[Rfam]
RNA sequence: AAGAGAAUUAAUUACUCUCUUUUUAUAGUGCAAGGAAGAGGCUGUUACCAGACGGCCGAACUUGACAACUUAGAGGUGGUACUCAGGCAUGGUACUAGAAAUAGGCUGUGUCACAUCACUCUACCGAGUGGAAGUUGGUUUUUGGCGCAUUAGAACAGGUAUCUGUGUCGCUGAAUUGGAGGUGAACCCAAGUCCUCCCUAUUUCGCA
Numbered sequence: 001a002a003g004a005g006a007a008u009u010a011a012u013u014a015c016u017c018u019c020u021u022u023u024u025a026u027a028g029u030g031c032a033a034g035g036a037a038g039a040g041g042c043u044g045u046u047a048c049c050a051g052a053c054g055g056c057c058g059a060a061c062u063u064g065a066c067a068a069c070u071u072a073g074a075g076g077u078g079g080u081a082c083u084c085a086g087g088c089a090u091g092g093u094a095c096u097a098g099a100a101a102u103a104g105g106c107u108g109u110g111u112c113a114c115a116u117c118a119c120u121c122u123a124c125c126g127a128g129u130g131g132a133a134g135u136u137g138g139u140u141u142u143u144g145g146c147g148c149a150u151u152a153g154a155a156c157a158g159g160u161a162u163c164u165g166u167g168u169c170g171c172u173g174a175a176u177u178g179g180a181g182g183u184g185a186a187c188c189c190a191a192g193u194c195c196u197c198c199c200u201a202u203u204u205c206g207c208a
Stems, first nucleotide, its partner, number of pairs: 001021006025202004032063002040057006066137006073084003077126004086112008116131005141175006151165004158188003178198005
manA RNA: a 208-nucleotide RNA from Pelagibacter phage Mosig EXVC030M. Rfam describes the family as follows. manA RNA has been located in 5'UTR regions of genes of mannose or fructose metabolism. Has been proposed as a cis-regulatory element and as a riboswitch candidate for his complex secondary structure.